[Rfam]
RNA sequence: UUAACCAAUUGUUAACCAUCGUCAUCUAGCUUUGGUUCAGAACGGUUCAGGUUCUGACCACGGAUGUACUGGCAGAGCUUCGAAACCACGGAAAAGGUCGGGUAAUUCCCGGCCUUUUUACGUU
Numbered sequence: 001u002u003a004a005c006c007a008a009u010u011g012u013u014a015a016c017c018a019u020c021g022u023c024a025u026c027u028a029g030c031u032u033u034g035g036u037u038c039a040g041a042a043c044g045g046u047u048c049a050g051g052u053u054c055u056g057a058c059c060a061c062g063g064a065u066g067u068a069c070u071g072g073c074a075g076a077g078c079u080u081c082g083a084a085a086c087c088a089c090g091g092a093a094a095a096g097g098u099c100g101g102g103u104a105a106u107u108c109c110c111g112g113c114c115u116u117u118u119u120a121c122g123u124u
Stems, first nucleotide, its partner, number of pairs: 003037004007032002013028002040087001045086002049080004055074002058072003088123003091119011
Shown here is a 124-nucleotide RNA from Aerobium aerolatum, a member of the family "Alphaproteobacterial sRNA ar35". The source organism's lineage runs through Bacteria, Pseudomonadati, Hyphomicrobiales, Phyllobacteriaceae and Aerobium aerolatum. Pairs were carried over by alignment from the consensus structure. Rfam classes the family as a small RNA. The family has 13 seed sequences and 266 matches in Rfam 15.1.